A member of the RNA family "Plant signal recognition particle RNA" from Nelumbo nucifera, 294 nucleotides long.
A search with the family's covariance model found it, with a score of 188 bits.
Rfam 15.1 lists 4,988 matches to the family in 266 species.
RNA sequence: GCCGAGCUCUGUAGCGAGAGCUUGUAACCCGAGCGGGGGUAUAGGUGGCCGAACUUUGAUUUGACUCCGACAGGCGGGGUCAGGUGGAGUAAUUUGCCGGCCAAGUAGAGAGUUGAGCCACGGAACUUAAGCGAAAGCUUGGGCUUCAUGGUUCUUAGAGAAGAGGACACCGCGUCAGGCUGGUUUCACAGAGCAGCGACUACCUCCCGCUCUCGUCGGUGGAAGGAUAACGAGUCGGUAUUCACCUCACCCACUAUUGCCCAACGAGUCGAGUCCAAUCGGACGACCACCUUU
Numbered sequence: 001g002c003c004g005a006g007c008u009c010u011g012u013a014g015c016g017a018g019a020g021c022u023u024g025u026a027a028c029c030c031g032a033g034c035g036g037g038g039g040u041a042u043a044g045g046u047g048g049c050c051g052a053a054c055u056u057u058g059a060u061u062u063g064a065c066u067c068c069g070a071c072a073g074g075c076g077g078g079g080u081c082a083g084g085u086g087g088a089g090u091a092a093u094u095u096g097c098c099g100g101c102c103a104a105g106u107a108g109a110g111a112g113u114u115g116a117g118c119c120a121c122g123g124a125a126c127u128u129a130a131g132c133g134a135a136a137g138c139u140u141g142g143g144c145u146u147c148a149u150g151g152u153u154c155u156u157a158g159a160g161a162a163g164a165g166g167a168c169a170c171c172g173c174g175u176c177a178g179g180c181u182g183g184u185u186u187c188a189c190a191g192a193g194c195a196g197c198g199a200c201u202a203c204c205u206c207c208c209g210c211u212c213u214c215g216u217c218g219g220u221g222g223a224a225g226g227a228u229a230a231c232g233a234g235u236c237g238g239u240a241u242u243c244a245c246c247u248c249a250c251c252c253a254c255u256a257u258u259g260c261c262c263a264a265c266g267a268g269u270c271g272a273g274u275c276c277a278a279u280c281g282g283a284c285g286a287c288c289a290c291c292u293u294u
Stems, first nucleotide, its partner, number of pairs: 001040003004023007028037003041294001043292006050285002054281001056278003059274006068266002073261004077252004082247003086243003090240002092235005098226001101222003105217001108214006115154006122147003126143007155160001163206004173198003180191003
Rfam classes the family as a non-coding RNA gene.